[Rfam]
RNA sequence: CUGCGGGGAUGAUGCACUGAACUCUCUCUUACUGAUGGUCUGGUGGAGAAGCUCCUGAACACGCUCUGAGUGGC
Numbered sequence: 001c002u003g004c005g006g007g008g009a010u011g012a013u014g015c016a017c018u019g020a021a022c023u024c025u026c027u028c029u030u031a032c033u034g035a036u037g038g039u040c041u042g043g044u045g046g047a048g049a050a051g052c053u054c055c056u057g058a059a060c061a062c063g064c065u066c067u068g069a070g071u072g073g074c
Stems, first nucleotide, its partner, number of pairs: 001073004
The family of this 74-nucleotide sequence from Tachuris rubrigastra is "Small nucleolar RNA SNORD26". Its family is annotated with nucleolus and RNA processing in the Gene Ontology. The source organism's lineage runs through Eukaryota, Metazoa, Vertebrata, Sauropsida and Tachuris. It is annotated as a C/D-box small nucleolar RNA. On this family, see Tycowski et al., Nature 1996: "A mammalian gene with introns instead of exons generating stable RNA products". The family has 17 seed sequences and 451 matches in Rfam 15.1. Pairs were carried over by alignment from the consensus structure, which was predicted with PFOLD. Its Rfam clan is "SNORD26 clan". A search with the family's covariance model found it, with a score of 62 bits.